[Rfam]
RNA sequence: AAUAGCCAAAUAGAAUGCUUGGACUAAGGGUGAAGAUGGUAAUUUUUCUUACAUCUCCCCCUCCUGGAGCCCAUGUAUCAUAUAUACCUCCAAAAUAAAAAGCCUUAAAUACUAGAAGAAAAGACCAUAUACCUAACUUUUGUGAAUUUCAAUUUCAUUCACAAAA
Numbered sequence: 001a002a003u004a005g006c007c008a009a010a011u012a013g014a015a016u017g018c019u020u021g022g023a024c025u026a027a028g029g030g031u032g033a034a035g036a037u038g039g040u041a042a043u044u045u046u047u048c049u050u051a052c053a054u055c056u057c058c059c060c061c062u063c064c065u066g067g068a069g070c071c072c073a074u075g076u077a078u079c080a081u082a083u084a085u086a087c088c089u090c091c092a093a094a095a096u097a098a099a100a101a102g103c104c105u106u107a108a109a110u111a112c113u114a115g116a117a118g119a120a121a122a123g124a125c126c127a128u129a130u131a132c133c134u135a136a137c138u139u140u141u142g143u144g145a146a147u148u149u150c151a152a153u154u155u156c157a158u159u160c161a162c163a164a165a166a
Stems, first nucleotide, its partner, number of pairs: 141163006149157001151155001
Description
Shown here is a 166-nucleotide RNA from Lathyrus oleraceus, a member of the family "Antisense RNA which regulates isiA expression". Pairs were carried over by alignment from the consensus structure, which was predicted with PFOLD. NCBI's taxonomy places the organism under Eukaryota, Euphyllophyta, Gunneridae, rosids, Lathyrus. The family has 308 seed sequences and 3,397 matches in Rfam 15.1. The match comes from Rfam's covariance-model search (122 bits).